[Rfam]
Nucleotides: 125
Base pairs, nucleotide, nucleotide: 002054003053004052005051013049014048015047019046020045021044024041025040026039027038028037061122064119065118066117067116068115069114070113075109076108077107079105080104081103082102083100084099085098086097
Number, partner (000 for none) and nucleotide at each position: 001000c002054c003053u004052g005051c006000c007000c008000c009000g010000a011000g012000a013049g014048g015047c016000a017000u018000u019046g020045c021044a022000g023000g024041u025040g026039u027038g028037g029000c030000u031000a032000g033000c034000a035000c036000a037028c038027c039026g040025c041024a042000u043000g044021u045020g046019u047015g048014u049013c050000a051005g052004c053003a054002g055000a056000g057000a058000g059000a060000a061122g062000a063000a064119a065118g066117g067116u068115u069114a070113c071000c072000u073000a074000u075109g076108u077107g078000c079105u080104c081103a082102g083100u084099g085098u086097u087000c088000u089000g090000a091000c092000c093000u094000a095000u096000a097086a098085a099084c100083a101000c102082c103081u104080g105079a106000a107077u108076g109075u110000u111000u112000a113070g114069u115068a116067g117066c118065c119064u120000a121000a122061c123000a124000u125000u